[Rfam]
RNA sequence: UGCACUAUAAUGCUGAGAGAAGUAGCAGUUACUUUGUACUAUGAGUAACUGCAACCUCUCUCGGUAUUGUAAGGUUC
Number, nucleotide and partner (000 for none) at each position: 001u000002g075003c074004a000005c000006u071007a070008u069009a068010a067011u066012g065013c064014u063015g062016a061017g060018a059019g058020a000021a000022g055023u054024a000025g052026c051027a050028g049029u048030u047031a046032c045033u044034u043035u000036g000037u000038a000039c000040u000041a000042u000043g034044a033045g032046u031047a030048a029049c028050u027051g026052c025053a000054a023055c022056c000057u000058c019059u018060c017061u016062c015063g014064g013065u012066a011067u010068u009069g008070u007071a006072a000073g000074g003075u002076u000077c000
RNA: mir-883 microRNA precursor family